[Rfam]
RNA: Burkholderia sRNA Bp2_Cand287_SIPHT
Organism: Burkholderia sp. Leaf177
RNA sequence: AAAAAGCCCGCUUCUGCGUCAGCAUGAGCGGGCUCGGUGCGGAAAAGCCUGUAGCGUCGCCGGGAAGUGUCGAGUGAAAUGAAACGAUCACCACCGGUUCGCUUUAGCUGUUUCGGGUUCCGAUUGAUAAAACCAUCAAAACCCGCGUCCGCAAGCUGAUCUCAAAUCGACGCAAACCCAAUCCUAUCACGCGUUUUCACGCGUUGC
Number, nucleotide and partner (000 for none) at each position: 001a000002a000003a000004a000005a034006g033007c032008c031009c030010g029011c028012u027013u000014c000015u024016g023017c022018g000019u000020c000021a000022g017023c016024a015025u000026g000027a012028g011029c010030g009031g008032g007033c006034u005035c000036g000037g000038u174039g173040c172041g171042g000043a000044a000045a000046a103047g102048c101049c000050u000051g000052u000053a099054g098055c000056g000057u000058c000059g000060c000061c000062g000063g000064g000065a000066a000067g000068u000069g000070u000071c000072g000073a000074g000075u000076g000077a000078a000079a000080u000081g000082a000083a000084a000085c000086g000087a000088u000089c000090a000091c000092c000093a000094c000095c000096g000097g000098u054099u053100c000101g048102c047103u046104u159105u158106a157107g156108c155109u154110g000111u000112u000113u000114c000115g144116g143117g142118u141119u140120c000121c000122g000123a000124u000125u000126g000127a000128u000129a000130a000131a000132a000133c000134c000135a000136u000137c000138a000139a000140a119141a118142c117143c116144c115145g152146c151147g000148u000149c000150c000151g146152c145153a000154a109155g108156c107157u106158g105159a104160u000161c000162u000163c000164a000165a000166a000167u000168c000169g000170a000171c041172g040173c039174a038175a000176a000177c000178c000179c000180a000181a000182u000183c000184c000185u000186a000187u000188c206189a205190c203191g202192c201193g200194u000195u000196u000197u000198c000199a000200c193201g192202c191203g190204u000205u189206g188207c000